[Rfam]
RNA sequence: UGUCAUAAACCCGUAGAUCCGAACUUGUGGUCAUUUGAACAGCACAAGCUCGUGUCUCUGGGUCUCUGGCUC
Number, nucleotide and partner (000 for none) at each position: 001u000002g070003u069004c068005a067006u000007a065008a000009a000010c062011c061012c060013g000014u000015a057016g056017a055018u054019c000020c052021g051022a050023a000024c048025u047026u046027g045028u044029g043030g000031u000032c000033a000034u000035u000036u000037g000038a000039a000040c000041a000042g000043c029044a028045c027046a026047a025048g024049c000050u022051c021052g020053u000054g018055u017056c016057u015058c000059u000060g012061g011062g010063u000064c000065u007066c000067u005068g004069g003070c002071u000072c000
RNA: mir-10 microRNA precursor family
Organism: Clupea harengus